Description
The family of this 123-nucleotide sequence from Polioptila caerulea is "Small nucleolar RNA SNORA55". The organism belongs to Polioptila, within Eukaryota. Pairs were carried over by alignment from the consensus structure, which was predicted with PFOLD. Rfam describes the family as follows. ACA55 is a member of the H/ACA class of snoRNA that guide the sites of modification of uridines to pseudouridines. Rfam links the family to the GO terms RNA processing and nucleolus.
[Rfam]
RNA sequence: GCACGUGGCCUCUUGCCUGUGCCUCGCUGUGCAGUGCAGGUUUAGGGGUGCUUGGUGCCACAGCACAGCUGUGGAAAUCCAGAUGGGUUCUUCUCCACUCAUCUCUGCACCUCUGCAGCACCA
Number, nucleotide and partner (000 for none) at each position: 001g058002c057003a056004c055005g000006u000007g000008g000009c000010c000011u000012c000013u000014u048015g000016c046017c045018u044019g043020u000021g000022c040023c039024u000025c000026g000027c000028u000029g000030u000031g000032c000033a000034g000035u000036g000037c000038a000039g023040g022041u000042u000043u019044a018045g017046g016047g000048g014049u000050g000051c000052u000053u000054g000055g004056u003057g002058c001059c000060a000061c000062a000063g000064c000065a000066c000067a000068g116069c115070u000071g113072u000073g111074g000075a000076a000077a000078u000079c000080c000081a104082g103083a102084u101085g100086g099087g098088u097089u000090c000091u000092u000093c000094u000095c000096c000097a088098c087099u086100c085101a084102u083103c082104u081105c000106u000107g000108c000109a000110c000111c073112u000113c071114u000115g069116c068117a000118g000119c000120a000121c000122c000123a000